The family of this 249-nucleotide sequence from Bucco capensis is "Small nucleolar RNA SNORD17". The snoRNA HBI-43 belongs to the C/D family of snoRNAs, guiding 2'O-ribose methylation at position U3797 of the 28S rRNA. Pseudouridylation in position U3797 is predicted to be guided by the H/ACA snoRNA ACA48. The match comes from Rfam's covariance-model search (128 bits).
[Rfam]
RNA sequence: GUGAGGUGAUGACGAAGUUUAUCCAUUCUCUGAGUGGAGUGGUGCUGCCCUCCUGCAGCACCCCAGUUCCUGUUCUAGGCUCUGGGUGCUGUGCAGCCUCCAGAGACCCUCUAGUCUCCCAGUGUCCUACUUGGAGGCUGCUGUGGUGUGUGGCUGGCUGCCUGCAGGAGGGAAGUGGUGCCAACAGGGUUGGAGCCUCUCUUUCGUGGGGCUCCAUCCUCACUGAGAUGAGGGAUGAUGUCUGAUCAC
Numbered sequence: 001g002u003g004a005g006g007u008g009a010u011g012a013c014g015a016a017g018u019u020u021a022u023c024c025a026u027u028c029u030c031u032g033a034g035u036g037g038a039g040u041g042g043u044g045c046u047g048c049c050c051u052c053c054u055g056c057a058g059c060a061c062c063c064c065a066g067u068u069c070c071u072g073u074u075c076u077a078g079g080c081u082c083u084g085g086g087u088g089c090u091g092u093g094c095a096g097c098c099u100c101c102a103g104a105g106a107c108c109c110u111c112u113a114g115u116c117u118c119c120c121a122g123u124g125u126c127c128u129a130c131u132u133g134g135a136g137g138c139u140g141c142u143g144u145g146g147u148g149u150g151u152g153g154c155u156g157g158c159u160g161c162c163u164g165c166a167g168g169a170g171g172g173a174a175g176u177g178g179u180g181c182c183a184a185c186a187g188g189g190u191u192g193g194a195g196c197c198u199c200u201c202u203u204u205c206g207u208g209g210g211g212c213u214c215c216a217u218c219c220u221c222a223c224u225g226a227g228a229u230g231a232g233g234g235a236u237g238a239u240g241u242c243u244g245a246u247c248a249c
Base pairs, nucleotide, nucleotide: 010248011247012246017241018240020238023234024233026232027231028230030227031226034223035222039185040184042182043180044179045178046177047176048175049172050171051169052168053167054166055165056164057163061088063086064085066082069079070078071077093161094160095159096158097157098156106147107146112140113139114138115137116136117135118134119133121131122130123129124128187220188219189218191216192215193214194213196211197210198209199208